[Rfam]
Nucleotides: 092
Stems, first nucleotide, its partner, number of pairs: 002091001004089003
Number, partner (000 for none) and nucleotide at each position: 001000u002091g003000c004089a005088a006087c007000g008000g009000u010000g011000a012000u013000g014000a015000g016000c017000c018000u019000u020000u021000u022000u023000a024000c025000a026000g027000a028000c029000a030000c031000a032000g033000a034000c035000c036000u037000g038000u039000a040000a041000u042000g043000a044000u045000u046000u047000g048000c049000g050000g051000u052000a053000a054000u055000g056000a057000u058000c059000g060000c061000a062000a063000u064000u065000u066000u067000a068000a069000g070000a071000a072000c073000a074000u075000c076000u077000a078000a079000g080000g081000g082000a083000c084000u085000g086000a087006g088005u089004u090000u091002c092000a
The record is a 92-nucleotide RNA from Carpinus fangiana, which matches "Small nucleolar RNA SNORD25" in Rfam. Taxonomically the source falls in Carpinus (Eukaryota, Viridiplantae, Tracheophyta, rosids). A search with the family's covariance model found it, with a score of 56 bits. A reference for the family is Qu et al. (2001), "Identification of 10 novel snoRNA gene clusters from Arabidopsis thaliana", Nucleic Acids Res. The base pairs follow the family's consensus structure, which was predicted with PFOLD.